[Rfam]
RNA sequence: UUCAGAUGUGACAAAUGAGGAGUGAAGCCAUGUACAUGGACACUGUGGUGAUUGCCGGGGUUGGAACCGUUUUGCUGAUGGUUGGCUUUAUGGCCGCCGUGGGCGCUUUCGUGGUCUGGGAUGCGAAAAAGAAGGCAGCCGGUGCGGGUAAACAUGACAGCCAUCAUGGUCGUUAAAGAGUGGCGUCCCCUGGGGGGUUCGAACCCCCGUU
Dot-bracket structure: ........((.(................................(((.....)))...................(....)............).))............................................................((.(((((...............))))))).....(((((.(...).)))))...